A member of the RNA family "Purine riboswitch aptamer" from Paenibacillus wynnii, 111 nucleotides long. The source organism's lineage runs through Bacteria, Bacillota, Bacilli, Caryophanales and Paenibacillus.
RNA sequence: UAUUUAAAUAAAUACCGUUCUCGUAUAACUCCGCAUUCAGCAGAUGCCUUAAGGGCGGAGGUUUCUACAGGAAGCCUACUCUUCCUAACUACGAUGAUAAGGAAAUGGAUC
Dot-bracket structure: .................((.(((((...((((((....................))))))........((((((......))))))...))))).))..............
Numbered sequence: 001u002a003u004u005u006a007a008a009u010a011a012a013u014a015c016c017g018u019u020c021u022c023g024u025a026u027a028a029c030u031c032c033g034c035a036u037u038c039a040g041c042a043g044a045u046g047c048c049u050u051a052a053g054g055g056c057g058g059a060g061g062u063u064u065c066u067a068c069a070g071g072a073a074g075c076c077u078a079c080u081c082u083u084c085c086u087a088a089c090u091a092c093g094a095u096g097a098u099a100a101g102g103a104a105a106u107g108g109a110u111c
Stems, first nucleotide, its partner, number of pairs: 018097002021094005029060006069086006